[Rfam]
The family of this 92-nucleotide RNA from Prunus yedoensis is "MIR6288 microRNA precursor family".
A search with the family's covariance model found it, with a score of 74 bits.
Its family is annotated with miRNA-mediated post-transcriptional gene silencing and RISC complex in the Gene Ontology.

RNA sequence: CUCAAAAUUGCCACUUGUCAGUUUCUAAUUAGUUAUUAGUGUGUUAAAAUUUUAUAAGAACCAAUCAGAUAAUGACAAGUGACAAUUUUGAG
Numbered sequence: 001c002u003c004a005a006a007a008u009u010g011c012c013a014c015u016u017g018u019c020a021g022u023u024u025c026u027a028a029u030u031a032g033u034u035a036u037u038a039g040u041g042u043g044u045u046a047a048a049a050u051u052u053u054a055u056a057a058g059a060a061c062c063a064a065u066c067a068g069a070u071a072a073u074g075a076c077a078a079g080u081g082a083c084a085a086u087u088u089u090g091a092g
Stems, first nucleotide, its partner, number of pairs: 002091009012081009022071001024069003028065003032061003036057003